RNA: U12 minor spliceosomal RNA
Organism: Aedes aegypti
Nucleotides: 177
Stems, first nucleotide, its partner, number of pairs: 004023005032053005039046001055091004106177005113172007122161001125158001128155002134150005
Number, partner (000 for none) and nucleotide at each position: 001000g002000u003000g004023c005022c006021u007020u008019a009000a010000a011000c012000u013000a014000a015000u016000g017000a018000g019008u020007a021006a022005g023004g024000a025000a026000a027000a028000u029000u030000a031000c032053g033052a034051g035050c036049c037000c038000u039046g040000u041000u042000a043000a044000c045000g046039c047000u048000u049036g050035g051034c052033u053032c054000a055091g056090c057089u058088u059000c060000c061000u062000c063000a064000u065000u066000g067000c068000a069000g070000u071000c072000g073000g074000u075000u076000a077000u078000c079000c080000g081000g082000c083000u084000g085000c086000g087000u088058a089057a090056g091055c092000g093000c094000u095000a096000a097000u098000u099000u100000u101000u102000c103000a104000u105000a106177g107176a108175g109174g110173u111000a112000c113172a114171g115170g116169u117168c118167g119166u120000c121000c122161c123000c124000u125158c126000g127000u128155a129154g130000u131000u132000a133000c134150c135149c136148u137147g138146c139000c140000u141000a142000c143000u144000u145000u146138g147137c148136g149135g150134g151000g152000u153000g154129c155128u156000c157000g158125g159000g160000c161122g162000u163000g164000c165000u166119g167118c168117g169116a170115u171114u172113u173110g174109c175108c176107u177106c